[Rfam]
RNA sequence: UUCUUAUCAAGAGAUGGCUGAGGGACUGGCCCGAUGAAGCCCGGCAACCGGCAUAAGCACGGUGCUAAAUCCUGCAGGAUAAAUUAUUUCCUGGAAGAUGAGAG
Numbered sequence: 001u002u003c004u005u006a007u008c009a010a011g012a013g014a015u016g017g018c019u020g021a022g023g024g025a026c027u028g029g030c031c032c033g034a035u036g037a038a039g040c041c042c043g044g045c046a047a048c049c050g051g052c053a054u055a056a057g058c059a060c061g062g063u064g065c066u067a068a069a070u071c072c073u074g075c076a077g078g079a080u081a082a083a084u085u086a087u088u089u090c091c092u093g094g095a096a097g098a099u100g101a102g103a104g
Base pairs, nucleotide, nucleotide: 001104002103003102004101005100006099007098008097013042016041017040018039022032023031024030026074028072029071043066044065045064046063048062049061050058070096075093076092077091078090079089
RNA: SAM riboswitch aptamer (S box leader)